[Rfam]
RNA sequence: AUGCGUUCGGGAACUCUAUCUGUGACAUGUGUGUCACUAUUAUUCACAUCACAGGCAGAGUUCUAGCUACGCGU
Numbered sequence: 001a002u003g004c005g006u007u008c009g010g011g012a013a014c015u016c017u018a019u020c021u022g023u024g025a026c027a028u029g030u031g032u033g034u035c036a037c038u039a040u041u042a043u044u045c046a047c048a049u050c051a052c053a054g055g056c057a058g059a060g061u062u063c064u065a066g067c068u069a070c071g072c073g074u
Base pairs, nucleotide, nucleotide: 004071005070006069008066010064011063012062013061014060015059016058020054021053022052023051024050025049029047030046031045